This 90-nucleotide sequence from Curvibacter sp. PAE-UM belongs to the Rfam family "Glycine riboswitch aptamer". Lineage of the source: Bacteria > Pseudomonadati > Pseudomonadota > Betaproteobacteria > Curvibacter. The base pairs follow the family's consensus structure.
RNA sequence: CAGACCCGAUCGGGAGAGACUGUCGCAACUGGCAGCGCCGAAGGAGCAACCGCCCCGGAAACUCUCAGGCAAAAGGACCGAUCAGGUGAU
Numbered sequence: 001c002a003g004a005c006c007c008g009a010u011c012g013g014g015a016g017a018g019a020c021u022g023u024c025g026c027a028a029c030u031g032g033c034a035g036c037g038c039c040g041a042a043g044g045a046g047c048a049a050c051c052g053c054c055c056c057g058g059a060a061a062c063u064c065u066c067a068g069g070c071a072a073a074a075g076g077a078c079c080g081a082u083c084a085g086g087u088g089a090u
Base pairs, nucleotide, nucleotide: 006085008083009082010081011080012079013078020035021034022033023032037070038069039068040066041065044064045063046062050058051057
Dot-bracket structure: .....(.((((((......((((........)))).(((((..(((...((.....))...))))).))).......)))))).).....